[Rfam]
RNA sequence: GUCUCUCAGCUGGUGUGAGGUUGGGCCAGGAUGAAACCCAAGGCUCUCCGAGGCUCCCCACCACACCCUGCUGCUGAAGACU
Numbered sequence: 001g002u003c004u005c006u007c008a009g010c011u012g013g014u015g016u017g018a019g020g021u022u023g024g025g026c027c028a029g030g031a032u033g034a035a036a037c038c039c040a041a042g043g044c045u046c047u048c049c050g051a052g053g054c055u056c057c058c059c060a061c062c063a064c065a066c067c068c069u070g071c072u073g074c075u076g077a078a079g080a081c082u
Stems, first nucleotide, its partner, number of pairs: 001081004005076001007073004012067006020059001023056005029049003033046002
Dot-bracket structure: (((((.((((.((((((..(..(((((.(((.((..........)))))..)))))..)..))))))..))))..).)))).
RNA: mir-1188 microRNA precursor family
Organism: Rattus norvegicus